This 123-nucleotide RNA sequence from Gossypium harknessii belongs to the Rfam family "MIR394 microRNA precursor family". The organism belongs to Gossypium, within Eukaryota. Gene Ontology terms of the family: miRNA-mediated post-transcriptional gene silencing and RISC complex.
RNA sequence: GUUGCAGAGCCAAUUUGGCAUUCUGUCCACCUCCAUUGAUGUACUUCUUUACCUACCCAACUUAUAAAAUGAUUUGUCUUUGAAGUAAUGGAGGCGGCCAGUAUGUCAAAUAGACUCUGUAAA
Dot-bracket structure: ..........(...((((((...((.((.(((((((((...............................................))))))))).)).))...))))))...)..........
Numbered sequence: 001g002u003u004g005c006a007g008a009g010c011c012a013a014u015u016u017g018g019c020a021u022u023c024u025g026u027c028c029a030c031c032u033c034c035a036u037u038g039a040u041g042u043a044c045u046u047c048u049u050u051a052c053c054u055a056c057c058c059a060a061c062u063u064a065u066a067a068a069a070u071g072a073u074u075u076g077u078c079u080u081u082g083a084a085g086u087a088a089u090g091g092a093g094g095c096g097g098c099c100a101g102u103a104u105g106u107c108a109a110a111u112a113g114a115c116u117c118u119g120u121a122a123a
Stems, first nucleotide, its partner, number of pairs: 011113001015109006024100002027097002030094009